[Rfam]
RNA sequence: AAAGGAGCAAUAAACCCUUUACUUGUUCUAUCAAAAGAGGGUUUAUUGCUCCUUAUGU
Numbered sequence: 001a002a003a004g005g006a007g008c009a010a011u012a013a014a015c016c017c018u019u020u021a022c023u024u025g026u027u028c029u030a031u032c033a034a035a036a037g038a039g040g041g042u043u044u045a046u047u048g049c050u051c052c053u054u055a056u057g058u
Stems, first nucleotide, its partner, number of pairs: 002054012022039003026035002
A member of the RNA family "Plastid-psbA-3 3UTR RNA", 58 nucleotides long. By type it is a cis-regulatory element. Plastid psbA-3 is a non-coding RNA (ncRNA) present in plastids. A reference for the family is Richter et al. (2023), "Retrograde signaling in plants: A critical review focusing on the GUN pathway and beyond", Plant Commun.